Record summary: FMN riboswitch aptamer (RFN element): a 132-nucleotide sequence from Tessaracoccus lapidicaptus.
[Rfam]
RNA sequence: AACGUGCUCCGGGGUCGGUGAAACUCCGAACCGGCGGUGAUAGUCCGCGACCCGGCGGCUCCUUGUGAGCCAAUGGUUGAACCGGUGGGAUUCCGGUACCGACGGUUAAAGUCCGGAUGGGAGGCGCACGCG
Numbered sequence: 001a002a003c004g005u006g007c008u009c010c011g012g013g014g015u016c017g018g019u020g021a022a023a024c025u026c027c028g029a030a031c032c033g034g035c036g037g038u039g040a041u042a043g044u045c046c047g048c049g050a051c052c053c054g055g056c057g058g059c060u061c062c063u064u065g066u067g068a069g070c071c072a073a074u075g076g077u078u079g080a081a082c083c084g085g086u087g088g089g090a091u092u093c094c095g096g097u098a099c100c101g102a103c104g105g106u107u108a109a110a111g112u113c114c115g116g117a118u119g120g121g122a123g124g125c126g127c128a129c130g131c132g
Stems, first nucleotide, its partner, number of pairs: 003130005009124002016028003030112002032101002034048004043099002052076002081097005103115003
The organism belongs to Tessaracoccus, within Bacteria.